[Rfam]
RNA sequence: UUGGUUCCGGUUCACCUCACGGCAACUCGUGGGGACCCGGCACA
Numbered sequence: 001u002u003g004g005u006u007c008c009g010g011u012u013c014a015c016c017u018c019a020c021g022g023c024a025a026c027u028c029g030u031g032g033g034g035a036c037c038c039g040g041c042a043c044a
Base pairs, nucleotide, nucleotide: 004043005042007040008039009038010037015034016033017032018031019030020029021028022027
A member of the RNA family "L31-Actinobacteria ribosomal protein leader" from Ruaniaceae bacterium KH17, 44 nucleotides long. By type it is a cis-regulatory leader. The literature on the family includes a 2020 paper in BMC Microbiol by Eckert and Weinberg, "Discovery of 20 novel ribosomal leader candidates in bacteria and archaea". It scores 40 bits against the family's covariance model. The family's consensus secondary structure is taken from published work.